[Rfam]
RNA sequence: AUUCAAUAAACAAUUUGUACUCAUAUAAUAGCGGGAAUAUGGCCCGCAAGUUUCUACCAAAUCACCGUAAACGAUUUGACUAUGAGUAAACGAUGCAUAUCG
Numbered sequence: 001a002u003u004c005a006a007u008a009a010a011c012a013a014u015u016u017g018u019a020c021u022c023a024u025a026u027a028a029u030a031g032c033g034g035g036a037a038u039a040u041g042g043c044c045c046g047c048a049a050g051u052u053u054c055u056a057c058c059a060a061a062u063c064a065c066c067g068u069a070a071a072c073g074a075u076u077u078g079a080c081u082a083u084g085a086g087u088a089a090a091c092g093a094u095g096c097a098u099a100u101c102g
Stems, first nucleotide, its partner, number of pairs: 018088008029049001031047005058078006